Annotation: Shown here is a 204-nucleotide RNA sequence from Crypturellus undulatus, a member of the family "Small nucleolar RNA SNORA74". U19 belongs to the H/ACA class of snoRNAs. snoRNAs bind a number of proteins (including dyskerin, Gar1p and Nop10p in the case of the H/ACA class) to form snoRNP complexes. This class are thought to guide the sites of modification of uridines to pseudouridines by forming direct base pairing interactions with substrate RNAs. Targets may include ribosomal and spliceosomal RNAs but the exact functions of many snoRNAs, including U19, are not confirmed. Co-precipitation of U19 snoRNA with RNase MRP RNA suggests that U19 may be involved in pre-rRNA processing. For this family Rfam cites "Characterization of the intron-encoded U19 RNA, a new mammalian small nucleolar RNA that is not associated with fibrillarin" (Kiss et al., Mol Cell Biol, 1996). The match comes from Rfam's covariance-model search (103 bits). Taxonomically the source falls in Crypturellus (Eukaryota, Chordata, Tetrapoda, Theropoda). Its family is annotated with nucleolus and RNA processing in the Gene Ontology. Rfam 15.1 lists 1,348 matches to the family in 628 species.

RNA sequence: GCCAGCGGUAGUCAGCUGCCCAUUGCCGCUCAGUGCAGGGGAUAGUGUUAUGCUGCUGGGAGAGAAACAUGCUGGCAGGUCACGCCUGGCACCGCUCGUGCUGUUCUAGUGCUAGACGGUGCCAGGUUCUGGCAGCACUCUGCAUGCUUGAGAGUGGAGUAACUCUUUUUCAGUAGAGUUAAUCCUAGAUAGGAUGCAGACAAA
Numbered sequence: 001g002c003c004a005g006c007g008g009u010a011g012u013c014a015g016c017u018g019c020c021c022a023u024u025g026c027c028g029c030u031c032a033g034u035g036c037a038g039g040g041g042a043u044a045g046u047g048u049u050a051u052g053c054u055g056c057u058g059g060g061a062g063a064g065a066a067a068c069a070u071g072c073u074g075g076c077a078g079g080u081c082a083c084g085c086c087u088g089g090c091a092c093c094g095c096u097c098g099u100g101c102u103g104u105u106c107u108a109g110u111g112c113u114a115g116a117c118g119g120u121g122c123c124a125g126g127u128u129c130u131g132g133c134a135g136c137a138c139u140c141u142g143c144a145u146g147c148u149u150g151a152g153a154g155u156g157g158a159g160u161a162a163c164u165c166u167u168u169u170u171c172a173g174u175a176g177a178g179u180u181a182a183u184c185c186u187a188g189a190u191a192g193g194a195u196g197c198a199g200a201c202a203a204a
Stems, first nucleotide, its partner, number of pairs: 002059008011051002015046004020041001021039001023038004070137005076131002084127011096115001098112005140199006147192001156185003160181007

Pairs were carried over by alignment from the consensus structure, which was predicted with PFOLD. Its Rfam clan is "SNORA74 clan".